[Rfam]
RNA sequence: AGCUUUGUGCAGUGGCAGUGUUGUAGCUGAUGAGGUUUAUCUGAGGAAUGAUCAUUGAUAAUUGAAAACCUUUCUCAAUGACCUGCCAUGAUGUCUUGAAAUAAAGUCAGCAUCAGCAAAUUUUUGACAGUCUCUAUGGAGA
Numbered sequence: 001a002g003c004u005u006u007g008u009g010c011a012g013u014g015g016c017a018g019u020g021u022u023g024u025a026g027c028u029g030a031u032g033a034g035g036u037u038u039a040u041c042u043g044a045g046g047a048a049u050g051a052u053c054a055u056u057g058a059u060a061a062u063u064g065a066a067a068a069c070c071u072u073u074c075u076c077a078a079u080g081a082c083c084u085g086c087c088a089u090g091a092u093g094u095c096u097u098g099a100a101a102u103a104a105a106g107u108c109a110g111c112a113u114c115a116g117c118a119a120a121u122u123u124u125u126g127a128c129a130g131u132c133u134c135u136a137u138g139g140a141g142a
Base pairs, nucleotide, nucleotide: 020052021051022050023049024048027046028045034042035041084118085117086116088113089112090111092109093108095106096105097104131142132141133140134139
Dot-bracket structure: ...................(((((..((.....((.....))..)).)))))...............................(((.(((.((.(((......))).)).)))..)))............((((....))))
Rfam assigns this 142-nucleotide RNA from Marmota marmota to the family "U4 spliceosomal RNA". NCBI's taxonomy places the organism under Eukaryota, Teleostomi, Theria, Xerinae, Marmota marmota. Rfam classes the family as a spliceosomal small nuclear RNA. The family's consensus secondary structure is taken from published work.